[Rfam]
RNA sequence: AAGGGCGAUGCUGAAAACCCUAAAAUAGAGUAAGCU
Dot-bracket structure: .((((....[[[.....))))...........]]].
Shown here is a 36-nucleotide sequence from Sphingobacterium sp. ML3W, a member of the family "DUF805b RNA". The family's consensus secondary structure is taken from published work. Taxonomically the source falls in Sphingobacterium (Bacteria, Bacteroidota, Sphingobacteriales, Sphingobacteriaceae).